[Rfam]
The family of this 76-nucleotide sequence from Psychrilyobacter sp. S5 is "c-di-GMP-I riboswitch aptamer". Lineage of the source: Bacteria > Fusobacteriati > Fusobacteriia > Fusobacteriaceae > Psychrilyobacter. The base pairs follow the family's consensus structure, which is taken from published work.
RNA sequence: UAAAAAUAUUGGCAAAACAGGGGAAAUCCUGUGACGCAAAGCUAUAGGACCUUUAAAAUGGCAGCCAGUUGCAGAU
Numbered sequence: 001u002a003a004a005a006a007u008a009u010u011g012g013c014a015a016a017a018c019a020g021g022g023g024a025a026a027u028c029c030u031g032u033g034a035c036g037c038a039a040a041g042c043u044a045u046a047g048g049a050c051c052u053u054u055a056a057a058a059u060g061g062c063a064g065c066c067a068g069u070u071g072c073a074g075a076u
Stems, first nucleotide, its partner, number of pairs: 012037002017032006040070004047066002050061002